[Rfam]
RNA sequence: GUGGUCCUUGUCUUUGGGGAGCAUAGUAUACAAUGAUCGUCUAGUGAGGAUACUGAUGCUGAAACCCAUUAUAAACGUUUAACCGCAUCCGGGCAACCCUCACGGGUGCACGUGAUGCAAUUUUUGUGAGC
Number, nucleotide and partner (000 for none) at each position: 001g000002u000003g000004g000005u019006c018007c017008u016009u000010g000011u000012c000013u000014u000015u000016g008017g007018g006019g005020a000021g059022c058023a057024u056025a054026g053027u052028a051029u050030a000031c048032a000033a000034u000035g000036a000037u000038c044039g000040u000041c000042u000043a000044g038045u000046g000047a000048g031049g000050a029051u028052a027053c026054u025055g000056a024057u023058g022059c021060u000061g000062a000063a000064a000065c000066c000067c000068a000069u000070u000071a000072u000073a000074a000075a000076c000077g000078u000079u000080u000081a000082a000083c000084c000085g118086c117087a116088u115089c114090c000091g000092g000093g109094c108095a000096a107097c106098c105099c104100u000101c000102a000103c000104g099105g098106g097107u096108g094109c093110a000111c000112g000113u000114g089115a088116u087117g086118c085119a000120a000121u000122u000123u000124u000125u000126g000127u000128g000129a000130g000131c000

Rfam assigns this 131-nucleotide sequence to the family "U4atac minor spliceosomal RNA". Rfam links the family to the GO terms pre-mRNA 5'-splice site binding, mRNA 5'-splice site recognition and spliceosomal tri-snRNP complex assembly. Rfam classes the family as a spliceosomal small nuclear RNA. U4atac is an essential component of the minor U12-type spliceosome complex which is required for removal of the rarer class of eukaryotic introns (AT-AC, U12-type).